Shown here is an 84-nucleotide RNA from Danionella cerebrum, a member of the family "Small nucleolar RNA SNORD35". The literature on the family includes a 1996 paper in J Mol Biol by Nicoloso et al., "Intron-encoded, antisense small nucleolar RNAs: the characterization of nine novel species points to their direct role as guides for the 2'-O-ribose methylation of rRNAs". Its Rfam clan is "SNORD35 clan". A search with the family's covariance model found it, with a score of 52 bits. Rfam describes the family as follows. U35 is a C/D box snoRNA located in intron 6 of ribosomal protein L13A and intron 3 of ribosomal protein S11 in humans and at homologous positions in mouse and chicken ribosomal protein genes. U35 guides the methylation of 2'-O-ribose sites in 28S rRNA.
[Rfam]
RNA sequence: UGCAAAUGAUGUGUUACUCACGAUGGUCUUCCAAGUCUUUGCGACGUUGAAGAUGUUGCCUAAUGGCGUUGCUGAUGCAGCACU
Dot-bracket structure: ((((.......................................................................)))).....